[Rfam]
Rfam assigns this 35-nucleotide sequence to the family "DUF805b RNA". Rfam classes the family as a cis-regulatory element. The family's consensus secondary structure is taken from published work. The sequence is in the family's curated seed alignment.
RNA sequence: AAGGCAGAACCCGAAAAGCCGAAACAGAGUAGGGA
Numbered sequence: 001a002a003g004g005c006a007g008a009a010c011c012c013g014a015a016a017a018g019c020c021g022a023a024a025c026a027g028a029g030u031a032g033g034g035a
Stems, first nucleotide, its partner, number of pairs: 003020003010034003